[Rfam]
RNA sequence: GGACACUGGUCUCGACUGGUGGAUAGAUGGCUGCUAUUCUAGCACCAUUUGAAAUCAGUGCUCU
Numbered sequence: 001g002g003a004c005a006c007u008g009g010u011c012u013c014g015a016c017u018g019g020u021g022g023a024u025a026g027a028u029g030g031c032u033g034c035u036a037u038u039c040u041a042g043c044a045c046c047a048u049u050u051g052a053a054a055u056c057a058g059u060g061c062u063c064u
Stems, first nucleotide, its partner, number of pairs: 001064003005059006012052003017047005024041004

This 64-nucleotide RNA from Pomacea canaliculata belongs to the Rfam family "mir-29 microRNA precursor family".
A search with the family's covariance model found it, with a score of 52 bits.
NCBI's taxonomy places the organism under Eukaryota, Metazoa, Mollusca, Architaenioglossa, Pomacea.
From the family's description: This family represents the microRNA (miRNA) precursors mir-29.